Rfam assigns this 59-nucleotide RNA sequence from Pteropus vampyrus to the family "Small nucleolar RNA U2-19".
Pairs were carried over by alignment from the consensus structure, which is taken from published work.
A reference for the family is Tycowski et al. (2004), "Guide RNAs with 5' Caps and Novel Box C/D snoRNA-like Domains for Modification of snRNAs in Metazoa", Curr Biol.
Its family is annotated with RNA processing and nucleolus in the Gene Ontology.

RNA sequence: CCAAAUGUGAGCAUCAGACCUUCCGGUCUACCUGAUGCAUGAUCUCUGCAGUUCUGAGA
Numbered sequence: 001c002c003a004a005a006u007g008u009g010a011g012c013a014u015c016a017g018a019c020c021u022u023c024c025g026g027u028c029u030a031c032c033u034g035a036u037g038c039a040u041g042a043u044c045u046c047u048g049c050a051g052u053u054c055u056g057a058g059a
Stems, first nucleotide, its partner, number of pairs: 011038005016029004